Group II catalytic intron D1-D4-3: a 172-nucleotide RNA sequence from Tepidibacillus fermentans.
Pairs were carried over by alignment from the consensus structure.
About the family: Group II introns are found in rRNA, tRNA and mRNA of organelles in fungi, plants and protists, and also in mRNA in bacteria.
NCBI's taxonomy places the organism under Bacteria, Bacillati, Bacillota, Caryophanales, Tepidibacillus.
A search with the family's covariance model found it, with a score of 154 bits.

[Rfam]
RNA sequence: UCCAUCGUGAGGUGGAGUCUGAAGGAAGCCAGAGGCAAAAUCCCGCCUCGAUGAAUAAGAACUACAUAUGAGGCUGUUUAAGACGGAUGAGUUUGCAAUACAAAACAAAGUCCAGCACUGCCCGAAUCUUAAGCAGUAAAUGUAGCGAGGGCAUGGGAUGAAAGUGGUAGCA
Numbered sequence: 001u002c003c004a005u006c007g008u009g010a011g012g013u014g015g016a017g018u019c020u021g022a023a024g025g026a027a028g029c030c031a032g033a034g035g036c037a038a039a040a041u042c043c044c045g046c047c048u049c050g051a052u053g054a055a056u057a058a059g060a061a062c063u064a065c066a067u068a069u070g071a072g073g074c075u076g077u078u079u080a081a082g083a084c085g086g087a088u089g090a091g092u093u094u095g096c097a098a099u100a101c102a103a104a105a106c107a108a109a110g111u112c113c114a115g116c117a118c119u120g121c122c123c124g125a126a127u128c129u130u131a132a133g134c135a136g137u138a139a140a141u142g143u144a145g146c147g148a149g150g151g152c153a154u155g156g157g158a159u160g161a162a163a164g165u166g167g168u169a170g171c172a
Stems, first nucleotide, its partner, number of pairs: 001016006030170001032168001035165002040159006046150005062145006073137003077133007085113004091106004